[Rfam]
RNA sequence: GGAGGUAGGUCCUCUGAAAUCGGUAUGCAGGUACAGAUUUCAAACCACCUCAAGCUGCUGUGGUCAAAAGCCAUGGUGGUGAGCGUUGAGGAAAAGGCGUACAAAGAUACGUCAGGU
Number, nucleotide and partner (000 for none) at each position: 001g015002g014003a013004g012005g011006u000007a000008g000009g000010u000011c005012c004013u003014c002015u001016g041017a040018a039019a038020u037021c036022g000023g034024u033025a032026u031027g000028c000029a000030g000031g026032u025033a024034c023035a000036g021037a020038u019039u018040u017041c016042a000043a000044a000045c000046c116047a000048c091049c090050u089051c088052a087053a086054g080055c079056u000057g077058c076059u075060g000061u073062g072063g071064u070065c000066a000067a000068a000069a000070g064071c063072c062073a061074u000075g059076g058077u057078g000079g055080u054081g000082a000083g000084c000085g000086u053087u052088g051089a050090g049091g048092a000093a000094a000095a000096g113097g112098c111099g110100u109101a108102c000103a000104a000105a000106g000107a000108u101109a100110c099111g098112u097113c096114a000115g000116g046117u000